[Rfam]
Nucleotides: 134
Stems, first nucleotide, its partner, number of pairs: 008084005013026005027055001030052001032050005038044001056079007102132004107128004113123004
Number, partner (000 for none) and nucleotide at each position: 001000g002000g003000g004000g005000a006000g007000g008084g009083c010082u011081u012080c013026u014025g015024u016023u017022g018000u019000g020000a021000a022017u023016g024015g025014c026013a027055c028000a029000c030052a031000c032050a033049g034048g035047g036046c037000a038044g039000c040000u041000c042000g043000a044038u045000g046036g047035c048034u049033c050032u051000u052030u053000a054000g055027g056079u057078g058077g059076a060075a061074u062073c063000a064000a065000c066000a067000u068000c069000a070000a071000g072000a073062g074061a075060u076059u077058u078057c079056g080012g081011a082010a083009g084008c085000a086000u087000a088000a089000u090000u091000u092000u093000u094000u095000g096000g097000c098000a099000c100000u101000u102132g103131g104130g105129c106000a107128g108127c109126u110125g111000a112000u113123g114122a115121u116120c117000g118000u119000u120116g121115g122114u123113c124000c125110u126109g127108g128107c129105g130104c131103c132102c133000c134000u